Shown here is a 129-nucleotide RNA sequence from Pseudolactococcus reticulitermitis, a member of the family "FMN riboswitch aptamer (RFN element)". The base pairs follow the family's consensus structure, which is taken from published work. The match comes from Rfam's covariance-model search (79 bits).
[Rfam]
Nucleotides: 129
Stems, first nucleotide, its partner, number of pairs: 005125006017029003031108002033097002035048004043095002052072002077093005099111003
Number, partner (000 for none) and nucleotide at each position: 001000a002000g003000a004000g005125g006124u007123c008122u009121u010120c011000a012000g013000g014000g015000c016000g017029g018028g019027g020000g021000u022000c023000g024000u025000u026000u027019c028018c029017c030000c031108a032107c033097u034096g035048g036047u037046g038045g039000u040000a041000a042000a043095g044094u045038c046037c047036a048035u049000g050000a051000a052072g053071c054000u055000u056000g057000a058000g059000u060000a061000u062000a063000g064000a065000a066000c067000u068000c069000a070000a071053g072052c073000c074000c075000g076000a077093a078092u079091c080090g081089g082000u083000g084000a085000a086000a087000u088000u089081c090080c091079g092078a093077u094044a095043c096034c097033a098000a099111c100110u101109g102000u103000u104000a105000a106000a107032g108031u109101c110100a111099g112000g113000a114000u115000a116000a117000a118000g119000a120010g121009g122008a123007g124006a125005c126000a127000a128000g129000a